A member of the RNA family "Small nucleolar RNA SNORD24" from Mastacembelus armatus, 72 nucleotides long.
RNA sequence: UGCAAGUGAUGUGAAAGAAUAUUUGCUAUCUUAACAGCCAUGCUGACCUUUUCCACCAAGAUCACUGAUGCA
Numbered sequence: 001u002g003c004a005a006g007u008g009a010u011g012u013g014a015a016a017g018a019a020u021a022u023u024u025g026c027u028a029u030c031u032u033a034a035c036a037g038c039c040a041u042g043c044u045g046a047c048c049u050u051u052u053c054c055a056c057c058a059a060g061a062u063c064a065c066u067g068a069u070g071c072a
Stems, first nucleotide, its partner, number of pairs: 001072004
Gene Ontology terms of the family: RNA processing and nucleolus. The literature on the family includes a 1995 paper in Nucleic Acids Res by Qu et al., "U24, a novel intron-encoded small nucleolar RNA with two 12 nt long, phylogenetically conserved complementarities to 28S rRNA".